[Rfam]
RNA: Lysine riboswitch aptamer
Organism: Firmicutes bacterium CAG:536
RNA sequence: UGCGCUGAUAGAGGCGCAAAAAAGACGAUAUAAGAAGGAGCUGGCAAGCAAAGAUUUCUUAUAGAAGCGAUUUUGCCGAACUGUUCUUAAAGGCAUUUAAGGAUGGUGGGCUUGUAGAGAAGAUCUGCAAGACUGUCUACGAAUGUAGGAGAGCUAUCUUAAGG
Numbered sequence: 001u002g003c004g005c006u007g008a009u010a011g012a013g014g015c016g017c018a019a020a021a022a023a024g025a026c027g028a029u030a031u032a033a034g035a036a037g038g039a040g041c042u043g044g045c046a047a048g049c050a051a052a053g054a055u056u057u058c059u060u061a062u063a064g065a066a067g068c069g070a071u072u073u074u075g076c077c078g079a080a081c082u083g084u085u086c087u088u089a090a091a092g093g094c095a096u097u098u099a100a101g102g103a104u105g106g107u108g109g110g111c112u113u114g115u116a117g118a119g120a121a122g123a124u125c126u127g128c129a130a131g132a133c134u135g136u137c138u139a140c141g142a143a144u145g146u147a148g149g150a151g152a153g154c155u156a157u158c159u160u161a162a163g164g
Stems, first nucleotide, its partner, number of pairs: 007158005016076006024068001030062008080107012108134002111131008136149005